RNA sequence: UGCGGUAGUGAGGGGAUUUUUUGAUGCGUCUUAACGUCGCCUUCUAUUUAUUGCGUUUACUACUAAGCCAAUAAGUAAAAUACGCAACUGCACAGC
Numbered sequence: 001u002g003c004g005g006u007a008g009u010g011a012g013g014g015g016a017u018u019u020u021u022u023g024a025u026g027c028g029u030c031u032u033a034a035c036g037u038c039g040c041c042u043u044c045u046a047u048u049u050a051u052u053g054c055g056u057u058u059a060c061u062a063c064u065a066a067g068c069c070a071a072u073a074a075g076u077a078a079a080a081u082a083c084g085c086a087a088c089u090g091c092a093c094a095g096c
Stems, first nucleotide, its partner, number of pairs: 008093003026040003030036001051087006062076003